[Rfam]
RNA: TPP riboswitch aptamer (THI element)
RNA sequence: CCGCCACGCUAGGGGUCCUGAAGAGCCAAUCUUCUGGUGAGAUAUACCCUUGAACCUGAACUGGAUAAUGCCAGCGUAGGAAAGCGCAAAGCCACUAAG
Numbered sequence: 001c002c003g004c005c006a007c008g009c010u011a012g013g014g015g016u017c018c019u020g021a022a023g024a025g026c027c028a029a030u031c032u033u034c035u036g037g038u039g040a041g042a043u044a045u046a047c048c049c050u051u052g053a054a055c056c057u058g059a060a061c062u063g064g065a066u067a068a069u070g071c072c073a074g075c076g077u078a079g080g081a082a083a084g085c086g087c088a089a090a091g092c093c094a095c096u097a098a099g
Stems, first nucleotide, its partner, number of pairs: 007086004011050004016044001017037002020034005055080004061074004